[Rfam]
Shown here is a 90-nucleotide RNA from Kangsaoukella pontilimi, a member of the family "Glycine riboswitch aptamer". Gene Ontology term of the family: glycine biosynthetic process. NCBI's taxonomy places the organism under Bacteria, Pseudomonadati, Alphaproteobacteria, Rhodobacterales, Kangsaoukella.
RNA sequence: UGGGGUACAACGGGAGAAUCCGGGUUCGCCCCGGUGCCGAAGGAGCAACCGCCCCGGUAAACUCUCAGGCCCACGGACCGUUGUGCACAA
Numbered sequence: 001u002g003g004g005g006u007a008c009a010a011c012g013g014g015a016g017a018a019u020c021c022g023g024g025u026u027c028g029c030c031c032c033g034g035u036g037c038c039g040a041a042g043g044a045g046c047a048a049c050c051g052c053c054c055c056g057g058u059a060a061a062c063u064c065u066c067a068g069g070c071c072c073a074c075g076g077a078c079c080g081u082u083g084u085g086c087a088c089a090a
Base pairs, nucleotide, nucleotide: 006085007084008083009082010081011080012079013078020034021033022032023031036070037069038068039066040065043064044063045062049057050056